The record is a 66-nucleotide RNA sequence from Molossus molossus, which matches "Small Nucleolar RNA SNORD64" in Rfam. Lineage of the source: Eukaryota > Deuterostomia > Gnathostomata > Yangochiroptera > Molossus. Rfam links the family to the GO terms RNA processing and nucleolus. The human snoRNA HBII-13 belongs to the C/D family of snoRNAs. It is expressed mainly in the brain, but is also in the lungs, the kidneys and muscle. HBII-13 snoRNA has no identified RNA target and is encoded together with HBII-436, HBII-437, HBII-438A/B and the clusters of HBII-85, HBII-52 snoRNA in a 460 kb intron of the large, paternally expressed, transcription unit (SNURF-SNRNP-UBE3A AS). This is antisense to maternally expressed UBE3A gene (Runt et al., 2001). The family's consensus secondary structure was predicted with RNAalifold. By type it is a C/D-box small nucleolar RNA. Rfam 15.1 lists 130 matches to the family in 101 species.
RNA sequence: UGACUUAUGAUGAGCUGUGUUUCCUGAGCACCAUGACAUGAUGGUCAACUGAAUACUCUGAAGUCC
Numbered sequence: 001u002g003a004c005u006u007a008u009g010a011u012g013a014g015c016u017g018u019g020u021u022u023c024c025u026g027a028g029c030a031c032c033a034u035g036a037c038a039u040g041a042u043g044g045u046c047a048a049c050u051g052a053a054u055a056c057u058c059u060g061a062a063g064u065c066c
Stems, first nucleotide, its partner, number of pairs: 002065004012058003020052002025047003029043001